mir-342 microRNA precursor family: a 99-nucleotide sequence from Catagonus wagneri. For this family Rfam cites "MicroRNA transcriptome in the newborn mouse ovaries determined by massive parallel sequencing" (Ahn et al., Mol Hum Reprod, 2010).

[Rfam]
RNA sequence: UGAACGGGGCACAAGGUGAGGGGUGCUAUCUGUGACUGAGGGACAUGGCACAUGGAACUGUCUCACACAGAAAUCGCACCCGUCACCUUGGCCCUCCUA
Numbered sequence: 001u002g003a004a005c006g007g008g009g010c011a012c013a014a015g016g017u018g019a020g021g022g023g024u025g026c027u028a029u030c031u032g033u034g035a036c037u038g039a040g041g042g043a044c045a046u047g048g049c050a051c052a053u054g055g056a057a058c059u060g061u062c063u064c065a066c067a068c069a070g071a072a073a074u075c076g077c078a079c080c081c082g083u084c085a086c087c088u089u090g091g092c093c094c095u096c097c098u099a
Stems, first nucleotide, its partner, number of pairs: 012090005018084002021081006029071006037065005